[Rfam]
RNA sequence: CCUGCGGUCAGACGGAAAGACCCCGUGCACCUUUACUGUAGCUUUGCGCUGGCAUUCGUGUCGGCAUGUGUAGGAUAGGUGGUAGACUUUGAAGCCGGGGCGCCAGCUCUGGUGGAGUCAUCCUUGAAAUACCACCCUUAUCGUCAUGGAUGUCUAACCGCGACCCGUCAUCCGGGUCCGAGACAGCGCAUGGCAGGCAGUUUGACUGGGGCGGUCGCCUCCCAAAGAGUAACGGAGGCGUGCGAAGGUGGGCUCAGAGCGGUCGGAAAUCGCUCGUUGAGUGCAAUGGCAUAAGCCUGCCUGACUGCGAGACUGACAAGUCGAGCAGAGUCGAAAGACGGCCAUAGUGAUCCGGUGGUCCCGCGUGGAAGGGCCAUCGCUCAACGGAUAAAAGGUACGCCGGGGAUAACAGGCUGAUGAUUCCCAAGAGUCCAUAUCGACGGAAUCGUUUGGCACCUCGAUGUCGGCUCAUCACAUCCUGGGGCUGGAGAAGGUCCCAAGGGUUCGGCUGUUCGCCGAUUAAAGUGGUACGUGAGCUGGGUUCAGAACGUCGUGAGACAGUUCGGUCCCUAUCUGCCGUGGGUGUA
Numbered sequence: 001c002c003u004g005c006g007g008u009c010a011g012a013c014g015g016a017a018a019g020a021c022c023c024c025g026u027g028c029a030c031c032u033u034u035a036c037u038g039u040a041g042c043u044u045u046g047c048g049c050u051g052g053c054a055u056u057c058g059u060g061u062c063g064g065c066a067u068g069u070g071u072a073g074g075a076u077a078g079g080u081g082g083u084a085g086a087c088u089u090u091g092a093a094g095c096c097g098g099g100g101c102g103c104c105a106g107c108u109c110u111g112g113u114g115g116a117g118u119c120a121u122c123c124u125u126g127a128a129a130u131a132c133c134a135c136c137c138u139u140a141u142c143g144u145c146a147u148g149g150a151u152g153u154c155u156a157a158c159c160g161c162g163a164c165c166c167g168u169c170a171u172c173c174g175g176g177u178c179c180g181a182g183a184c185a186g187c188g189c190a191u192g193g194c195a196g197g198c199a200g201u202u203u204g205a206c207u208g209g210g211g212c213g214g215u216c217g218c219c220u221c222c223c224a225a226a227g228a229g230u231a232a233c234g235g236a237g238g239c240g241u242g243c244g245a246a247g248g249u250g251g252g253c254u255c256a257g258a259g260c261g262g263u264c265g266g267a268a269a270u271c272g273c274u275c276g277u278u279g280a281g282u283g284c285a286a287u288g289g290c291a292u293a294a295g296c297c298u299g300c301c302u303g304a305c306u307g308c309g310a311g312a313c314u315g316a317c318a319a320g321u322c323g324a325g326c327a328g329a330g331u332c333g334a335a336a337g338a339c340g341g342c343c344a345u346a347g348u349g350a351u352c353c354g355g356u357g358g359u360c361c362c363g364c365g366u367g368g369a370a371g372g373g374c375c376a377u378c379g380c381u382c383a384a385c386g387g388a389u390a391a392a393a394g395g396u397a398c399g400c401c402g403g404g405g406a407u408a409a410c411a412g413g414c415u416g417a418u419g420a421u422u423c424c425c426a427a428g429a430g431u432c433c434a435u436a437u438c439g440a441c442g443g444a445a446u447c448g449u450u451u452g453g454c455a456c457c458u459c460g461a462u463g464u465c466g467g468c469u470c471a472u473c474a475c476a477u478c479c480u481g482g483g484g485c486u487g488g489a490g491a492a493g494g495u496c497c498c499a500a501g502g503g504u505u506c507g508g509c510u511g512u513u514c515g516c517c518g519a520u521u522a523a524a525g526u527g528g529u530a531c532g533u534g535a536g537c538u539g540g541g542u543u544c545a546g547a548a549c550g551u552c553g554u555g556a557g558a559c560a561g562u563u564c565g566g567u568c569c570c571u572a573u574c575u576g577c578c579g580u581g582g583g584u585g586u587a
Base pairs, nucleotide, nucleotide: 001583002582003581004580005579006578007577008576010575011574012573014570015569022404023403024402025401027400028399029396030395031394032393033392035201036200037199038198042193043192045190046189047188048187051154052153053152054151055150056149057148058147059146060145062143063142064141066139068137078136079135080134081133082132085119086118087117094113095112096111097110098109099108100107101106159180160179162178163177164176165175166174167173204216205215206214207213217239218238219237220236221235222234240385242342243341248300249299250298251297252296253295254280255279257275258274259273260272261271262270281290282289305328306327307326308325311322312321313320330339331338332337353379354378355377356376357375358374359373361372362371413454414453415452417451418448419447420446421445422444423443424442428438429437465540466538467537468536469535470532471529472528473527474526475525478503479502481498482497483496484495485494486493505519506518507517508516509515546564547563548562549561550559551558552557

About this RNA
Shown here is a 587-nucleotide part of an RNA from Allobosea sp. Root381, a member of the family "Bacterial large subunit ribosomal RNA". NCBI's taxonomy places the organism under Bacteria, Alphaproteobacteria, Hyphomicrobiales, Alloboseaceae, Allobosea.